[Rfam]
RNA sequence: GUUAAUUCAAUAGAUGUACCGUAGACAGUAGGUGCUUUUAAGGCUUAAUUUCCUACCGAGGUGUUAAUUAUAAGGAACGGAUUUAUUCUGUGAUUAUAAUACCUCCAUGUCUUCUGUAAGAGUGGAGGUUUUUUUACGCCGCA
Numbered sequence: 001g002u003u004a005a006u007u008c009a010a011u012a013g014a015u016g017u018a019c020c021g022u023a024g025a026c027a028g029u030a031g032g033u034g035c036u037u038u039u040a041a042g043g044c045u046u047a048a049u050u051u052c053c054u055a056c057c058g059a060g061g062u063g064u065u066a067a068u069u070a071u072a073a074g075g076a077a078c079g080g081a082u083u084u085a086u087u088c089u090g091u092g093a094u095u096a097u098a099a100u101a102c103c104u105c106c107a108u109g110u111c112u113u114c115u116g117u118a119a120g121a122g123u124g125g126a127g128g129u130u131u132u133u134u135u136a137c138g139c140c141g142c143a
Base pairs, nucleotide, nucleotide: 028056029055030054031053032052034044035043036042102128103127104126105125106124107123108122110120
The record is a 143-nucleotide sequence from Bacillus sp. 165, which matches "Ribosomal protein L10 leader" in Rfam.